[Rfam]
RNA sequence: CACAAUUAGUCGGGGUGCUGCGCAAGCGGCUGAGAAAACACCCGUGAACCUGACACAGGUAAUACUGGCGUAGGAAACUAAUCAAAACAACUG
Numbered sequence: 001c002a003c004a005a006u007u008a009g010u011c012g013g014g015g016u017g018c019u020g021c022g023c024a025a026g027c028g029g030c031u032g033a034g035a036a037a038a039c040a041c042c043c044g045u046g047a048a049c050c051u052g053a054c055a056c057a058g059g060u061a062a063u064a065c066u067g068g069c070g071u072a073g074g075a076a077a078c079u080a081a082u083c084a085a086a087a088c089a090a091c092u093g
Stems, first nucleotide, its partner, number of pairs: 006081005011044004016038001017030005049074004056067003